[Rfam]
RNA sequence: CCACGAUAACGGCAAAGCAGAUGAAAAUCUGUGACGCAAAGCUACAGGGGCUAAGGUAGUGCAAGCUACGACGCCAGCCAGCUACCGAA
Numbered sequence: 001c002c003a004c005g006a007u008a009a010c011g012g013c014a015a016a017g018c019a020g021a022u023g024a025a026a027a028u029c030u031g032u033g034a035c036g037c038a039a040a041g042c043u044a045c046a047g048g049g050g051c052u053a054a055g056g057u058a059g060u061g062c063a064a065g066c067u068a069c070g071a072c073g074c075c076a077g078c079c080a081g082c083u084a085c086c087g088a089a
Stems, first nucleotide, its partner, number of pairs: 012037002017032006040083004047079002049075003056069004